[Rfam]
RNA sequence: GGCCCCUACGUGGUGUCAUCUCGCUGAACUUCCCCCAGGACCGGAAGGUAGCAAGGGUAGGUGGGCUCUGGCAGGUGCGUGAGGGGUCUUCACGUU
Number, nucleotide and partner (000 for none) at each position: 001g088002g087003c000004c086005c083006c000007u081008a080009c079010g078011u075012g000013g000014u073015g072016u071017c070018a069019u000020c065021u064022c063023g062024c061025u060026g000027a000028a000029c000030u000031u000032c057033c056034c055035c000036c000037a000038g000039g000040a049041c048042c047043g000044g000045a000046a000047g042048g041049u040050a000051g000052c000053a000054a000055g034056g033057g032058u000059a000060g025061g024062u023063g022064g021065g020066c000067u000068c000069u018070g017071g016072c015073a014074g000075g011076u000077g000078c010079g009080u008081g007082a000083g005084g000085g000086g004087u002088c001089u000090u000091c000092a000093c000094g000095u000096u000
RNA: Bacterial small signal recognition particle RNA